A member of the RNA family "THF (Tetrahydrofolate) riboswitch aptamer" from Marvinbryantia formatexigens, 91 nucleotides long. It is one of the family's seed sequences. Its family is annotated with tetrahydrofolate metabolic process in the Gene Ontology. From the family's description: Tetrahydrofolate (THF) riboswitch was first reported for Ames et al. as an RNA motif in 5' untranslated (5'-UTR)regions of folate transport and biosynthesis genes in Firmicutes genomes.
RNA sequence: AGUAGAGUAGGUCUUAUACGUAAAGUGUCAUCGGAUGGGGAGACUUCCGGUGAACGAAGGGUUACCGCGUUAUAUGACCGCUUCCGCUACU
Numbered sequence: 001a002g003u004a005g006a007g008u009a010g011g012u013c014u015u016a017u018a019c020g021u022a023a024a025g026u027g028u029c030a031u032c033g034g035a036u037g038g039g040g041a042g043a044c045u046u047c048c049g050g051u052g053a054a055c056g057a058a059g060g061g062u063u064a065c066c067g068c069g070u071u072a073u074a075u076g077a078c079c080g081c082u083u084c085c086g087c088u089a090c091u
Stems, first nucleotide, its partner, number of pairs: 001091005010079004015074004019069003025055002028053008038085005059066002
Dot-bracket structure: (((((....((((.(((((((...((.((((((((..[[[[[...))))))))))...((....))))).)))).)))).]]]]].)))))